[Rfam]
RNA: mir-2807 microRNA precursor family
RNA sequence: UUAACUCAAAUUUGAAUACAGCUGGAACAUUUGCGUAUGUUUGCCGCUAGGGGCGCUGUUCCAACUGCAUACAAGUUAGAGUUA
Number, nucleotide and partner (000 for none) at each position: 001u000002u000003a000004a000005c000006u000007c000008a000009a077010a076011u075012u074013u073014g072015a000016a070017u000018a000019c000020a066021g065022c000023u063024g062025g061026a060027a059028c058029a057030u000031u000032u000033g000034c052035g000036u050037a000038u000039g047040u046041u000042u000043g000044c000045c000046g040047c039048u000049a000050g036051g000052g034053g000054c000055g000056c000057u029058g028059u027060u026061c025062c024063a023064a000065c021066u020067g000068c000069a000070u016071a000072c014073a013074a012075g011076u010077u009078a000079g000080a000081g000082u000083u000084a000